RNA sequence: CCCUAGCCGCGAUGGAAACGGCAUCCUUUUUUGUGGCGGACGGAACGGAGUGGAGACCGGUGCAAAAAAGAUACAGUGGACAGCGGGAAACAGC
Number, nucleotide and partner (000 for none) at each position: 001c000002c000003c000004u000005a000006g000007c000008c000009g000010c085011g084012a000013u082014g081015g000016a000017a000018a077019c076020g000021g000022c000023a072024u071025c070026c000027u000028u000029u067030u066031u065032u064033g063034u062035g000036g000037c000038g000039g000040a000041c000042g000043g000044a000045a000046c000047g000048g000049a000050g000051u000052g000053g000054a000055g000056a000057c000058c000059g000060g000061u000062g034063c033064a032065a031066a030067a029068a000069a000070g025071a024072u023073a000074c000075a000076g019077u018078g000079g000080a000081c014082a013083g000084c011085g010086g000087g000088a000089a000090a000091c000092a000093g000094c000
Background:
A member of the RNA family "Flavo-1 RNA" from Chryseobacterium sp. Leaf394, 94 nucleotides long. By type it is a small RNA. The family has 201 seed sequences and 7,497 matches in Rfam 15.1. The match comes from Rfam's covariance-model search (57 bits).